[Rfam]
RNA sequence: GUUUCUUGCUGAACCCCACCUCCUCCCGGGGUUCAUAGCAAAAGCGGCGGCGCUUCUCCUCCUCCCUGGCGCCGCCGCACUUU
Numbered sequence: 001g002u003u004u005c006u007u008g009c010u011g012a013a014c015c016c017c018a019c020c021u022c023c024u025c026c027c028g029g030g031g032u033u034c035a036u037a038g039c040a041a042a043a044g045c046g047g048c049g050g051c052g053c054u055u056c057u058c059c060u061c062c063u064c065c066c067u068g069g070c071g072c073c074g075c076c077g078c079a080c081u082u083u
Stems, first nucleotide, its partner, number of pairs: 007037002011034007045077010